A member of the RNA family "Glycine riboswitch aptamer" from Paramicrobacterium agarici, 91 nucleotides long. Rfam links the family to the GO term glycine biosynthetic process.

RNA sequence: GCCACUCUGAAAAGCGGAGCGACUGCUCCCGCCCACGGUGAAAGUCGCUCAGCAGCGGCGAAGCUCUCAGGCUCAUGACAGAGGGGGAGUU
Numbered sequence: 001g002c003c004a005c006u007c008u009g010a011a012a013a014g015c016g017g018a019g020c021g022a023c024u025g026c027u028c029c030c031g032c033c034c035a036c037g038g039u040g041a042a043a044g045u046c047g048c049u050c051a052g053c054a055g056c057g058g059c060g061a062a063g064c065u066c067u068c069a070g071g072c073u074c075a076u077g078a079c080a081g082a083g084g085g086g087g088a089g090u091u
Base pairs, nucleotide, nucleotide: 002086003085005083006082007081008080009079016029017028018027019026031072032071033070035067038066040064044059045058046057047056
Lineage of the source: Bacteria > Bacillati > Actinomycetes > Micrococcales > Paramicrobacterium.